The record is a 112-nucleotide sequence from Streptomyces sp. SLBN-118, which matches "Streptomyces RNA 4115" in Rfam.
The literature on the family includes a 2011 paper in RNA Biol by Vockenhuber et al., "Deep sequencing-based identification of small non-coding RNAs in Streptomyces coelicolor".
Rfam's curators write: Identified by deep sequencing of transcriptome at the end of exponential growth phase. Sequencing size consistent with notrthern blot size. Streptomyces specific.
The family's RNA type in Rfam is small RNA.

RNA sequence: GCGUGGGUCGGCCCACUGCGUACUGGAACCAGUGGGCUGGGGGAAUCCGCUGCCUUCAAUCCCCGCGGGUGGCGGGCCGGUCCGGGAGGCGAAUGACGCCUCCCGGACUGUG
Numbered sequence: 001g002c003g004u005g006g007g008u009c010g011g012c013c014c015a016c017u018g019c020g021u022a023c024u025g026g027a028a029c030c031a032g033u034g035g036g037c038u039g040g041g042g043g044a045a046u047c048c049g050c051u052g053c054c055u056u057c058a059a060u061c062c063c064c065g066c067g068g069g070u071g072g073c074g075g076g077c078c079g080g081u082c083c084g085g086g087a088g089g090c091g092a093a094u095g096a097c098g099c100c101u102c103c104c105g106g107a108c109u110g111u112g
Stems, first nucleotide, its partner, number of pairs: 001111002006078003009039010047075009057065001079109013